[Rfam]
RNA: R2 RNA element
RNA sequence: ACAUCUCCCUCUCCCCAAAUAGUCAAAAUCUUUCCCUUGGGAGUAACAGCCUUAGGGUUGAAAUCCCAUCUCAAGGAGGGGUUUUAGUCGGUAGGCGCUAUGACGAAUCCGACACUACCCCCCUUCAGGGGGUGGCUUUGGAAGAUUUCCCCUCCUCGAGGCUA
Numbered sequence: 001a002c003a004u005c006u007c008c009c010u011c012u013c014c015c016c017a018a019a020u021a022g023u024c025a026a027a028a029u030c031u032u033u034c035c036c037u038u039g040g041g042a043g044u045a046a047c048a049g050c051c052u053u054a055g056g057g058u059u060g061a062a063a064u065c066c067c068a069u070c071u072c073a074a075g076g077a078g079g080g081g082u083u084u085u086a087g088u089c090g091g092u093a094g095g096c097g098c099u100a101u102g103a104c105g106a107a108u109c110c111g112a113c114a115c116u117a118c119c120c121c122c123c124u125u126c127a128g129g130g131g132g133u134g135g136c137u138u139u140g141g142a143a144g145a146u147u148u149c150c151c152c153u154c155c156u157c158g159a160g161g162c163u164a
Stems, first nucleotide, its partner, number of pairs: 014041005048163005072158001074156003078151003087113005096105002115134001118132004